Source information: Fluoride riboswitch aptamer (crcB RNA motif): a 65-nucleotide sequence from Arcticibacter tournemirensis. Pairs were carried over by alignment from the consensus structure, which is taken from published work.
RNA sequence: UUGCGGAACGGAAAUGGUGUCUUCCGACUUAACCGCCCUAAAAAGCUGAUGGCGCCUGCAAAAUU
Dot-bracket structure: .........[[[[..((((((]]]].........((........))....)))))).........

Gene Ontology terms of the family: positive regulation of gene expression and response to fluoride.
Taxonomically the source falls in Arcticibacter (Bacteria, Bacteroidota, Sphingobacteriales, Sphingobacteriaceae).